[Rfam]
RNA sequence: CCCCUCAAUCGCUCAGUAGUCAGUGUAGAUCCUGUAUUCUAAUCAGCAGCUACAUCUGGCUACUGGGUCUCUGAGGGUACCU
Numbered sequence: 001c002c003c004c005u006c007a008a009u010c011g012c013u014c015a016g017u018a019g020u021c022a023g024u025g026u027a028g029a030u031c032c033u034g035u036a037u038u039c040u041a042a043u044c045a046g047c048a049g050c051u052a053c054a055u056c057u058g059g060c061u062a063c064u065g066g067g068u069c070u071c072u073g074a075g076g077g078u079a080c081c082u
Stems, first nucleotide, its partner, number of pairs: 013066006020059003023055006032049004
RNA: mir-221 microRNA precursor family